[Rfam]
RNA sequence: AUAGGGUACUCUGGAGAGUCUCCAUUUAUUAGGAGCGCCGAAGGUGUAAGACAGAUUCAAGUCCAUGGUAUCUGUCGAUCUCUCAGGCAAAAGGACAGGGCAUACAUA
Numbered sequence: 001a002u003a004g005g006g007u008a009c010u011c012u013g014g015a016g017a018g019u020c021u022c023c024a025u026u027u028a029u030u031a032g033g034a035g036c037g038c039c040g041a042a043g044g045u046g047u048a049a050g051a052c053a054g055a056u057u058c059a060a061g062u063c064c065a066u067g068g069u070a071u072c073u074g075u076c077g078a079u080c081u082c083u084c085a086g087g088c089a090a091a092a093g094g095a096c097a098g099g100g101c102a103u104a105c106a107u108a
Stems, first nucleotide, its partner, number of pairs: 006103002009100005020035004037088003040084002044082001046080001050076007
Shown here is a 108-nucleotide RNA sequence from [Clostridium] symbiosum, a member of the family "Glycine riboswitch aptamer". NCBI's taxonomy places the organism under Bacteria, Lachnospirales, Lachnospiraceae, Otoolea, [Clostridium] symbiosum. The match comes from Rfam's covariance-model search (61 bits). This family represents the bacterial glycine riboswitch.